[Rfam]
RNA sequence: GAAGCAGGUGGCAAUUGCAGGGUUCCUUUAUAUGGAAACACUGCCAUAAUCCUGCUGAGAGCAAUUCUGUUACAUAGGAUUUGAUUUCUCCUCCAUCCUGGUGAAAUUAACCUCCUUUUAACAGUGACAAGC
Numbered sequence: 001g002a003a004g005c006a007g008g009u010g011g012c013a014a015u016u017g018c019a020g021g022g023u024u025c026c027u028u029u030a031u032a033u034g035g036a037a038a039c040a041c042u043g044c045c046a047u048a049a050u051c052c053u054g055c056u057g058a059g060a061g062c063a064a065u066u067c068u069g070u071u072a073c074a075u076a077g078g079a080u081u082u083g084a085u086u087u088c089u090c091c092u093c094c095a096u097c098c099u100g101g102u103g104a105a106a107u108u109a110a111c112c113u114c115c116u117u118u119u120a121a122c123a124g125u126g127a128c129a130a131g132c
Base pairs, nucleotide, nucleotide: 003056004055005054006053007052008051018043019042020041022039023038024037026035065126067124068123069122070121071120072119074117081110082109083108084107085106086105087104088103090101091100

Rfam assigns this 132-nucleotide sequence from Thamnophis sirtalis to the family "Small nucleolar RNA SNORA69".
Rfam 15.1 lists 808 matches to the family in 584 species.
U69 is a member of the H/ACA class of small nucleolar RNAs (snoRNAs) which act as guides in the the modification of uridines to pseudouridines.
Rfam links the family to the GO terms RNA processing and nucleolus.
By type it is an H/ACA-box small nucleolar RNA.
The organism belongs to Thamnophis, within Eukaryota.
A search with the family's covariance model found it, with a score of 64 bits.